[Rfam]
RNA sequence: AUCCUGGUGAAGAUUCUCAGACCAUAGGAAGUGCCGUAGGACACUGUAAACAACGGCUGCUUCUCUCCACUGCAAGUGUCCUCCUUCGCCCAUAACCUUUGUUGUUUGUGGGCUGGAAUUUCCAUUUGCAGCUGGUUUGGUUCAGCUGUGUGCGUGAUUUUAAGUGGGUCUCUGAGGGAU
Numbered sequence: 001a002u003c004c005u006g007g008u009g010a011a012g013a014u015u016c017u018c019a020g021a022c023c024a025u026a027g028g029a030a031g032u033g034c035c036g037u038a039g040g041a042c043a044c045u046g047u048a049a050a051c052a053a054c055g056g057c058u059g060c061u062u063c064u065c066u067c068c069a070c071u072g073c074a075a076g077u078g079u080c081c082u083c084c085u086u087c088g089c090c091c092a093u094a095a096c097c098u099u100u101g102u103u104g105u106u107u108g109u110g111g112g113c114u115g116g117a118a119u120u121u122c123c124a125u126u127u128g129c130a131g132c133u134g135g136u137u138u139g140g141u142u143c144a145g146c147u148g149u150g151u152g153c154g155u156g157a158u159u160u161u162a163a164g165u166g167g168g169u170c171u172c173u174g175a176g177g178g179a180u
Base pairs, nucleotide, nucleotide: 001180002179003178004177005176070131071130072129073128074127075126076125077124078123079117080116081115083112084111091108092107094106095105096104
Rfam assigns this 180-nucleotide sequence from Triticum urartu to the family "Small nucleolar RNA Z112". Rfam classes the family as a C/D-box small nucleolar RNA. Clan: SNORD49 clan. The base pairs follow the family's consensus structure, which was predicted with PFOLD. A search with the family's covariance model found it, with a score of 164 bits. The organism belongs to Triticum, within Eukaryota.